RNA sequence: UUCCUUUUACAAUUCACGGAACUGUGCUCUGUGAUCCCCUGGCUGCCAAUUUUCUUCUUUGGAGAGAAACUUCACUUGUGUUGCUUCUUUUCAUAGCAAGAGGUUGGAUUUGGCUUCAGGGUCGAACGCAGCGGCAGCUUGAUCGUUUUAUAGAGCCACCCUGAACAAUGGUGUUAUCUGAUCAACAGUUUCUAGAGUAGCCAGCCGUCAUACAUUUGUUUGACCCUGUCAAGUUCGCGGUAAAACGCUGAGCAUGAUGGGGGAGAAUGGAGGCAAUGCUGAGGCCGCUAUAUUCCACCCCUUUUUUCCAAGGUCAUUGACUGAUGAGGUUGAGGAUAACCAUAGCUGGUCACAUUU
Numbered sequence: 001u002u003c004c005u006u007u008u009a010c011a012a013u014u015c016a017c018g019g020a021a022c023u024g025u026g027c028u029c030u031g032u033g034a035u036c037c038c039c040u041g042g043c044u045g046c047c048a049a050u051u052u053u054c055u056u057c058u059u060u061g062g063a064g065a066g067a068a069a070c071u072u073c074a075c076u077u078g079u080g081u082u083g084c085u086u087c088u089u090u091u092c093a094u095a096g097c098a099a100g101a102g103g104u105u106g107g108a109u110u111u112g113g114c115u116u117c118a119g120g121g122u123c124g125a126a127c128g129c130a131g132c133g134g135c136a137g138c139u140u141g142a143u144c145g146u147u148u149u150a151u152a153g154a155g156c157c158a159c160c161c162u163g164a165a166c167a168a169u170g171g172u173g174u175u176a177u178c179u180g181a182u183c184a185a186c187a188g189u190u191u192c193u194a195g196a197g198u199a200g201c202c203a204g205c206c207g208u209c210a211u212a213c214a215u216u217u218g219u220u221u222g223a224c225c226c227u228g229u230c231a232a233g234u235u236c237g238c239g240g241u242a243a244a245a246c247g248c249u250g251a252g253c254a255u256g257a258u259g260g261g262g263g264a265g266a267a268u269g270g271a272g273g274c275a276a277u278g279c280u281g282a283g284g285c286c287g288c289u290a291u292a293u294u295c296c297a298c299c300c301c302u303u304u305u306u307u308c309c310a311a312g313g314u315c316a317u318u319g320a321c322u323g324a325u326g327a328g329g330u331u332g333a334g335g336a337u338a339a340c341c342a343u344a345g346c347u348g349g350u351c352a353c354a355u356u357u
Base pairs, nucleotide, nucleotide: 018192019191020190021189022188023187024186025185026135027134028133029131030130031129033127035125036124037121038120039119040118041117045114046113047112048111049110051108052107053106056103057102058101059100060099143184145182146181147180151176152175153174155172156171157170204279205278211271213269214268215267216266227259228258229257230256231255233253234252235251236250237248238247284350285349286348287346288345289344290343291342301335302334303333304332308329309328312322313321314320315319